[Rfam]
RNA sequence: GAAACCUUUAAUUUCAGUCCCGUGAGGCUGAGAAGGCACGGUGAAUUAAUCCAUUAGAUUAGAACUCUAGGACUAGUCUCAAACUGUAACCUCUCAACCAAUAUCGGUUGAGAGGUUUUUUGUU
Number, nucleotide and partner (000 for none) at each position: 001g000002a000003a000004a000005c036006c035007u034008u033009u032010a000011a000012u000013u000014u031015c030016a029017g028018u027019c026020c000021c000022g000023u000024g000025a000026g019027g018028c017029u016030g015031a014032g009033a008034a007035g006036g005037c000038a000039c000040g000041g000042u000043g000044a000045a000046u000047u000048a000049a000050u000051c000052c000053a000054u081055u000056a079057g078058a077059u076060u075061a074062g073063a000064a000065c070066u000067c000068u000069a000070g065071g000072a000073c062074u061075a060076g059077u058078c057079u056080c000081a054082a000083a000084c000085u000086g119087u000088a117089a116090c115091c114092u113093c112094u111095c110096a109097a108098c107099c106100a000101a000102u000103a000104u000105c000106g099107g098108u097109u096110g095111a094112g093113a092114g091115g090116u089117u088118u000119u086120u000121u000122g000123u000124u000
The record is a 124-nucleotide sequence from Latilactobacillus sakei, which matches "PyrR binding site" in Rfam. It is annotated as a cis-regulatory element. Rfam links the family to the GO terms pyrimidine nucleobase transport and pyrimidine nucleobase biosynthetic process. About the family: This family represents the PyrR binding site and terminator structure. This RNA structure is found upstream of a variety of genes involved in pyrimidine biosynthesis and transport. Taxonomically the source falls in Latilactobacillus sakei subsp. sakei (Bacteria, Bacillota, Lactobacillales, Lactobacillaceae).